[Rfam]
RNA sequence: UUACAAUUAAAGGAUAUUUCUCGUGACUGCAAAAAAUACGGAAAUAUCUCUUAAUUGUUGGAU
Numbered sequence: 001u002u003a004c005a006a007u008u009a010a011a012g013g014a015u016a017u018u019u020c021u022c023g024u025g026a027c028u029g030c031a032a033a034a035a036a037u038a039c040g041g042a043a044a045u046a047u048c049u050c051u052u053a054a055u056u057g058u059u060g061g062a063u
Stems, first nucleotide, its partner, number of pairs: 003058008012049010024035001
The family of this 63-nucleotide sequence from Cynoglossus semilaevis is "mir-7552 microRNA precursor family". NCBI's taxonomy places the organism under Eukaryota, Deuterostomia, Osteoglossocephalai, Cynoglossinae, Cynoglossus. The match comes from Rfam's covariance-model search (70 bits).